[Rfam]
RNA sequence: GUUCCAUAGACAUUUUGGCAUUCUGUCCACCUCCAUUUUUAUUGUUAGCUGCUAACAUUCUUUGUAGCAUUUGGAGGUAGCCAGUAUGCCAAACAGGCUCUGUGAA
Numbered sequence: 001g002u003u004c005c006a007u008a009g010a011c012a013u014u015u016u017g018g019c020a021u022u023c024u025g026u027c028c029a030c031c032u033c034c035a036u037u038u039u040u041a042u043u044g045u046u047a048g049c050u051g052c053u054a055a056c057a058u059u060c061u062u063u064g065u066a067g068c069a070u071u072u073g074g075a076g077g078u079a080g081c082c083a084g085u086a087u088g089c090c091a092a093a094c095a096g097g098c099u100c101u102g103u104g105a106a
Base pairs, nucleotide, nucleotide: 011096015092016091017090018089019088020087024083025082027080029078030077031076032075033074034073
Notes: The record is a 106-nucleotide RNA sequence from Arachis duranensis, which matches "MIR394 microRNA precursor family" in Rfam. Its family is annotated with RISC complex and miRNA-mediated post-transcriptional gene silencing in the Gene Ontology. The match comes from Rfam's covariance-model search (68 bits).